[Rfam]
Shown here is an 82-nucleotide RNA sequence, a member of the family "Small nucleolar RNA SNORD24". Gene Ontology terms of the family: nucleolus and RNA processing. Rfam's curators put it in the seed alignment.
RNA sequence: UGCCACAAUGAUGACAGUUUAUUUGCUACUCUUGAGUGCUAGAAUGAUGAGGAUCUUAACCACCAUUAUCUUAACUGAGGCA
Number, nucleotide and partner (000 for none) at each position: 001u082002g081003c080004c079005a000006c000007a000008a000009u000010g000011a000012u000013g000014a000015c000016a000017g000018u000019u000020u000021a000022u000023u000024u000025g000026c000027u000028a000029c000030u000031c000032u000033u000034g000035a000036g000037u000038g000039c000040u000041a000042g000043a000044a000045u000046g000047a000048u000049g000050a000051g000052g000053a000054u000055c000056u000057u000058a000059a000060c000061c000062a000063c000064c000065a000066u000067u000068a000069u000070c000071u000072u000073a000074a000075c000076u000077g000078a000079g004080g003081c002082a001